[Rfam]
Shown here is a 76-nucleotide RNA sequence from Sphingomonas sp. SKA58, a member of the family "Makes More Granules Regulator RNA (mmgR)". On this family, see Corbino et al., Genome Biol 2005: "Evidence for a second class of S-adenosylmethionine riboswitches and other regulatory RNA motifs in alpha-proteobacteria". Taxonomically the source falls in Sphingomonas (Bacteria, Pseudomonadota, Alphaproteobacteria, Sphingomonadales). Rfam's curators write: SuhB later renamed mmgR (makes more granules regulator) was a putative non-coding RNA found multiple times in the Agrobacterium tumefaciens genome and related alpha-proteobacteria. Other non-coding RNAs uncovered in the same analysis include: speF, ybhL, metA, and serC.Several studies inSinorhizobium meliloti showed that suhB element is indeed a non-coding RNA:firstly it was detected on Northern blot and called Sm8RNA, secondly in an RNAseq study referred to as SmelC689.The mutant phenotype's (strain lacking the small RNA) cytoplasm contains higher content of polyhydroxybutyrate (PBH)storage granules than wild type strain. The sRNA is required to limit the PBH intracellular accumulation when the nitrogen-fixing Sinorhizobium meliloti is under condition of surplus carbon in relation to nitrogen. It has been renamed to mmgR. Further study confirmed that mmgR fine-tunes the regulation of PBH storage.Northern blot confirmed the expression of the sRNA in other rhizobia species. The sequence is in the family's curated seed alignment. It is annotated as a small RNA.
RNA sequence: CGACCCUGCCUUUCAGGCAUCCUCUCCUAAAACUUUCACGGGCUGAUCUUCGGAUCGGCCCUUUUUUUCAAGAAUU
Numbered sequence: 001c002g003a004c005c006c007u008g009c010c011u012u013u014c015a016g017g018c019a020u021c022c023u024c025u026c027c028u029a030a031a032a033c034u035u036u037c038a039c040g041g042g043c044u045g046a047u048c049u050u051c052g053g054a055u056c057g058g059c060c061c062u063u064u065u066u067u068u069c070a071a072g073a074a075u076u
Stems, first nucleotide, its partner, number of pairs: 008018004040061009